[Rfam]
RNA: Small nucleolar RNA Z266
Organism: Capsella rubella
RNA sequence: AACGGCGAGGGAUGAUGAUUCAAUUAGAUGUGCGAAUGGAGAAAUACUUCUCUAUUUUGAGCUCAAAAACUAUAUUUGGCAUUUUUUACUGACUUCGCCGUC
Dot-bracket structure: .(((((((((..................................................................................))))))))).
Numbered sequence: 001a002a003c004g005g006c007g008a009g010g011g012a013u014g015a016u017g018a019u020u021c022a023a024u025u026a027g028a029u030g031u032g033c034g035a036a037u038g039g040a041g042a043a044a045u046a047c048u049u050c051u052c053u054a055u056u057u058u059g060a061g062c063u064c065a066a067a068a069a070c071u072a073u074a075u076u077u078g079g080c081a082u083u084u085u086u087u088a089c090u091g092a093c094u095u096c097g098c099c100g101u102c
Stems, first nucleotide, its partner, number of pairs: 002101009